[Rfam]
RNA sequence: GGCCGGUGAUGAGCUCUAUCCGCGUUUCUGACACCUCGUCUGAGGGCGGCGGGCGGCCGCGGCCCCUGCUGACCACCUAUGGCUGAGGCCC
Numbered sequence: 001g002g003c004c005g006g007u008g009a010u011g012a013g014c015u016c017u018a019u020c021c022g023c024g025u026u027u028c029u030g031a032c033a034c035c036u037c038g039u040c041u042g043a044g045g046g047c048g049g050c051g052g053g054c055g056g057c058c059g060c061g062g063c064c065c066c067u068g069c070u071g072a073c074c075a076c077c078u079a080u081g082g083c084u085g086a087g088g089c090c091c
Base pairs, nucleotide, nucleotide: 001090002089003088004087046060047059048058049057050056

A member of the RNA family "Small nucleolar RNA SNORD60" from Corythaixoides concolor, 91 nucleotides long. On this family, see Kiss-Laszlo et al., Cell 1996: "Site-specific ribose methylation of preribosomal RNA: a novel function for small nucleolar RNAs". Clan: SNORD60 clan. Gene Ontology terms of the family: RNA processing and nucleolus. NCBI's taxonomy places the organism under Eukaryota, Eumetazoa, Deuterostomia, Teleostomi, Corythaixoides. The family's consensus secondary structure was predicted with PFOLD.